[Rfam]
Rfam assigns this 81-nucleotide RNA from Paenibacillus cremeus to the family "ZMP/ZTP riboswitch aptamer (pfl RNA motif)". On this family, see Jones and Ferre-D'Amare, Nat Struct Mol Biol 2015: "Recognition of the bacterial alarmone ZMP through long-distance association of two RNA subdomains".

RNA sequence: AAGUUCCGAUGUAACUGGCGACGAGUGGACCUAACCACAGUGGAGCAUCGGAAGAUACGGCCGGUCGCCUGGGCAAAGAGC
Numbered sequence: 001a002a003g004u005u006c007c008g009a010u011g012u013a014a015c016u017g018g019c020g021a022c023g024a025g026u027g028g029a030c031c032u033a034a035c036c037a038c039a040g041u042g043g044a045g046c047a048u049c050g051g052a053a054g055a056u057a058c059g060g061c062c063g064g065u066c067g068c069c070u071g072g073g074c075a076a077a078g079a080g081c
Base pairs, nucleotide, nucleotide: 004053005052006051007050008049009048010047011046012045015042017069018068019067020066021065025038026037027036028035060074061073062072